Source information:
The record is a 60-nucleotide RNA sequence from Bifidobacterium felsineum, which matches "msiK RNA" in Rfam.
RNA sequence: GAAACAAAUCCCUUUACAACGGAUCGUGAGGCACGUACCUGCCUCUGAAAGGAUUGAAAU
Numbered sequence: 001g002a003a004a005c006a007a008a009u010c011c012c013u014u015u016a017c018a019a020c021g022g023a024u025c026g027u028g029a030g031g032c033a034c035g036u037a038c039c040u041g042c043c044u045c046u047g048a049a050a051g052g053a054u055u056g057a058a059a060u
Stems, first nucleotide, its partner, number of pairs: 010052002013049004028045006

The family's RNA type in Rfam is cis-regulatory element. The base pairs follow the family's consensus structure, which is taken from published work.